[Rfam]
Background
A member of the RNA family "TPP riboswitch aptamer (THI element)" from Chitinasiproducens palmae, 102 nucleotides long. From the family's description: Vitamin B(1) in its active form thiamin pyrophosphate (TPP) is an essential coenzyme that is synthesised by coupling of pyrimidine and thiazole moieties in bacteria.
RNA sequence: GCUCAAGCGCAGGGGUCCUGCAACGAUACUCGUUGCGGGUGAGAAAUACCCUUUGAACCUGAUCCGGAUAAUGCCGGCGAAGGAAGCGUGUCGGACCCAGGC
Numbered sequence: 001g002c003u004c005a006a007g008c009g010c011a012g013g014g015g016u017c018c019u020g021c022a023a024c025g026a027u028a029c030u031c032g033u034u035g036c037g038g039g040u041g042a043g044a045a046a047u048a049c050c051c052u053u054u055g056a057a058c059c060u061g062a063u064c065c066g067g068a069u070a071a072u073g074c075c076g077g078c079g080a081a082g083g084a085a086g087c088g089u090g091u092c093g094g095a096c097c098c099a100g101g102c
Stems, first nucleotide, its partner, number of pairs: 007089004011052004016046001017039009058083003064077004
Dot-bracket structure: ......((((((((.((((((((((.....)))))))))......)..)))).....(((...((((......))))...)))..)))).............